[Rfam]
RNA sequence: UUUUUAUUGGACAUUGACUGUCAGAUGUCGUGAUUUUAUUGGAGGUUGACAUUAAUUAGGUAUAUGAAAUUAACAUCUAAUAAACGCACAACACAUGAUGAUUAACGUCC
Numbered sequence: 001u002u003u004u005u006a007u008u009g010g011a012c013a014u015u016g017a018c019u020g021u022c023a024g025a026u027g028u029c030g031u032g033a034u035u036u037u038a039u040u041g042g043a044g045g046u047u048g049a050c051a052u053u054a055a056u057u058a059g060g061u062a063u064a065u066g067a068a069a070u071u072a073a074c075a076u077c078u079a080a081u082a083a084a085c086g087c088a089c090a091a092c093a094c095a096u097g098a099u100g101a102u103u104a105a106c107g108u109c110c
Base pairs, nucleotide, nucleotide: 020099021098022097023096026093030089031088035084036083038081039080040079
The record is a 110-nucleotide RNA sequence from Glycine soja, which matches "MIR1520 microRNA precursor family" in Rfam. Its family is annotated with miRNA-mediated post-transcriptional gene silencing and RISC complex in the Gene Ontology. The source organism's lineage runs through Eukaryota, Spermatophyta, Fabaceae, Phaseoleae and Glycine subgen. Soja.